[Rfam]
RNA: mir-500 microRNA precursor family
Organism: Oryctolagus cuniculus
RNA sequence: GCUCUUUCUCUCUAAUCCUUGAUACCUGGUGUUAGUGCUUUCUAUGUGCAAUGCACCUGGGCAAGGAUUUAGAGUGGGAUGAGC
Number, nucleotide and partner (000 for none) at each position: 001g000002c000003u000004c000005u000006u000007u000008c000009u000010c000011u000012c000013u000014a069015a068016u067017c066018c065019u064020u063021g000022a000023u000024a000025c061026c060027u059028g057029g056030u055031g054032u000033u000034a000035g000036u050037g049038c048039u000040u000041u000042c000043u000044a000045u000046g000047u000048g038049c037050a036051a000052u000053g000054c031055a030056c029057c028058u000059g027060g026061g025062c000063a020064a019065g018066g017067a016068u015069u014070u000071a000072g000073a000074g000075u000076g000077g000078g000079a000080u000081g000082a000083g000084c000